[Rfam]
RNA: L2-Alphaproteobacteria ribosomal protein leader
RNA sequence: GGCCACCUGCGGACCACCAGUCGAGGGGGCUAUCACAUAGGGCGGAGCCUUCCGCCCGUCUGUAAACGGAAGACAGAAA
Numbered sequence: 001g002g003c004c005a006c007c008u009g010c011g012g013a014c015c016a017c018c019a020g021u022c023g024a025g026g027g028g029g030c031u032a033u034c035a036c037a038u039a040g041g042g043c044g045g046a047g048c049c050u051u052c053c054g055c056c057c058g059u060c061u062g063u064a065a066a067c068g069g070a071a072g073a074c075a076g077a078a079a
Stems, first nucleotide, its partner, number of pairs: 001031004006027003040057007